[Rfam]
Nucleotides: 139
Stems, first nucleotide, its partner, number of pairs: 001068002003065003008060002010055001013053001017048001023046004029040002078132003082128003086123002091121005100110002
Number, partner (000 for none) and nucleotide at each position: 001068g002067u003065g004064c005063u006000u007000u008060a009059c010055u011000u012000u013053g014000u015000u016000a017048a018000a019000u020000a021000a022000u023046u024045u025044g026043c027000u028000g029040u030039u031000a032000a033000u034000g035000a036000a037000u038000u039030a040029a041000u042000u043026g044025c045024a046023a047000a048017u049000a050000u051000a052000u053013c054000u055010a056000c057000u058000u059009g060008u061000g062000a063005a064004g065003c066000u067002a068001u069000a070000a071000a072000a073000a074000a075000a076000u077000a078132g079131u080130u081000c082128c083127c084126c085000u086123c087122g088000c089000u090000a091121u092120c093119c094118g095117g096000u097000g098000a099000g100110u101109g102000u103000u104000u105000g106000u107000a108000a109101u110100g111000g112000u113000u114000c115000a116000u117095u118094u119093g120092g121091a122087c123086g124000u125000u126084g127083g128082g129000a130080a131079a132078c133000u134000a135000c136000a137000g138000a139000u
Annotation:
This 139-nucleotide RNA from Apium graveolens belongs to the Rfam family "Small nucleolar RNA snoR136". For this family Rfam cites "Mining small RNA sequencing data: a new approach to identify small nucleolar RNAs in Arabidopsis" (Chen and Wu, Nucleic Acids Res, 2009). A search with the family's covariance model found it, with a score of 68 bits. Its family is annotated with nucleolus and RNA processing in the Gene Ontology. The base pairs follow the family's consensus structure, which was predicted with mfold. By type it is an H/ACA-box small nucleolar RNA.